[Rfam]
RNA sequence: GGUUAGCGCGAGGAGGCAGACAUGGGACUUACGCAAUCCUUGAAUGUCCUGUUGGUCAGUGCAGCGUUCGCAUUCGUCGUAUCCAUGCUCUUCAUUUGAGCCGAUGCGAGGCGUCAAAAACUGAGAUACCUACACUCCUGAAUGAUAAAUAACCCCGAACACUGAAAAGCGCAUGCCCCGCCCGGCCAUGCGCUUU
Numbered sequence: 001g002g003u004u005a006g007c008g009c010g011a012g013g014a015g016g017c018a019g020a021c022a023u024g025g026g027a028c029u030u031a032c033g034c035a036a037u038c039c040u041u042g043a044a045u046g047u048c049c050u051g052u053u054g055g056u057c058a059g060u061g062c063a064g065c066g067u068u069c070g071c072a073u074u075c076g077u078c079g080u081a082u083c084c085a086u087g088c089u090c091u092u093c094a095u096u097u098g099a100g101c102c103g104a105u106g107c108g109a110g111g112c113g114u115c116a117a118a119a120a121c122u123g124a125g126a127u128a129c130c131u132a133c134a135c136u137c138c139u140g141a142a143u144g145a146u147a148a149a150u151a152a153c154c155c156c157g158a159a160c161a162c163u164g165a166a167a168a169g170c171g172c173a174u175g176c177c178c179c180g181c182c183c184g185g186c187c188a189u190g191c192g193c194u195u196u
Base pairs, nucleotide, nucleotide: 015048016047017046018045024040025039026038027037166196167195168194169193170192171191172190173189174188175187176185177184